[Rfam]
RNA sequence: GCCCAGGCACUCCAGGCACGGGUGUACCCGCAACCGGGGUGCCCGCAACCGGUGUACCCGCAACCGGGGUGCCCGCAACUGGGGUGCCCGCAACUGGGGCAUCA
Numbered sequence: 001g002c003c004c005a006g007g008c009a010c011u012c013c014a015g016g017c018a019c020g021g022g023u024g025u026a027c028c029c030g031c032a033a034c035c036g037g038g039g040u041g042c043c044c045g046c047a048a049c050c051g052g053u054g055u056a057c058c059c060g061c062a063a064c065c066g067g068g069g070u071g072c073c074c075g076c077a078a079c080u081g082g083g084g085u086g087c088c089c090g091c092a093a094c095u096g097g098g099g100c101a102u103c104a
Base pairs, nucleotide, nucleotide: 001085002084003083004082006043007042008041009040010039011038012037013036044071045070046069049067050066051065052061053060054059087099088098089097